[Rfam]
RNA: skipping-rope RNA
RNA sequence: AUUAUUUGAGGUGGAAAUUUCGUGUCGCCACGCGCCACAUGCUUUCGGGCAAUGGGCAAAAGAAAUGCAGGGGAAUGGCACGCCUGCCAAAUAAC
Numbered sequence: 001a002u003u004a005u006u007u008g009a010g011g012u013g014g015a016a017a018u019u020u021c022g023u024g025u026c027g028c029c030a031c032g033c034g035c036c037a038c039a040u041g042c043u044u045u046c047g048g049g050c051a052a053u054g055g056g057c058a059a060a061a062g063a064a065a066u067g068c069a070g071g072g073g074a075a076u077g078g079c080a081c082g083c084c085u086g087c088c089a090a091a092u093a094a095c
Stems, first nucleotide, its partner, number of pairs: 002094007011031004022081005033062001034057003067087005